[Rfam]
RNA sequence: UCCUUAACUAUUAAAAGUUUCGUUUUGGUCCCUUAACUUACUUUUAGGUUUCGUUUUGGUCCCUUAACUAUUAAAAGUUUCGUUUUGGUCCUUUAACUUACUUUUUGGUUUCGUUUUGGUCCCUUAACUUUUCCUCCGUCAACUACUUUGGUCCUUUAUGUUAGGAUGAAUGUAUUAGAGUUAAGGGACCAAAAGGAAACCAAAAAAUAAGUUAAGGGACCAAAACGAAACCAAAAAAUAAGUUAAGGGA
Numbered sequence: 001u002c003c004u005u006a007a008c009u010a011u012u013a014a015a016a017g018u019u020u021c022g023u024u025u026u027g028g029u030c031c032c033u034u035a036a037c038u039u040a041c042u043u044u045u046a047g048g049u050u051u052c053g054u055u056u057u058g059g060u061c062c063c064u065u066a067a068c069u070a071u072u073a074a075a076a077g078u079u080u081c082g083u084u085u086u087g088g089u090c091c092u093u094u095a096a097c098u099u100a101c102u103u104u105u106u107g108g109u110u111u112c113g114u115u116u117u118g119g120u121c122c123c124u125u126a127a128c129u130u131u132u133c134c135u136c137c138g139u140c141a142a143c144u145a146c147u148u149u150g151g152u153c154c155u156u157u158a159u160g161u162u163a164g165g166a167u168g169a170a171u172g173u174a175u176u177a178g179a180g181u182u183a184a185g186g187g188a189c190c191a192a193a194a195g196g197a198a199a200c201c202a203a204a205a206a207a208u209a210a211g212u213u214a215a216g217g218g219a220c221c222a223a224a225a226c227g228a229a230a231c232c233a234a235a236a237a238a239u240a241a242g243u244u245a246a247g248g249g250a
Base pairs, nucleotide, nucleotide: 002248003247004246005245006244007243008242023225024224025223027221028220029219031217032216033215034214035213036212037211038210039209040208042206043205045203047201048200049199050198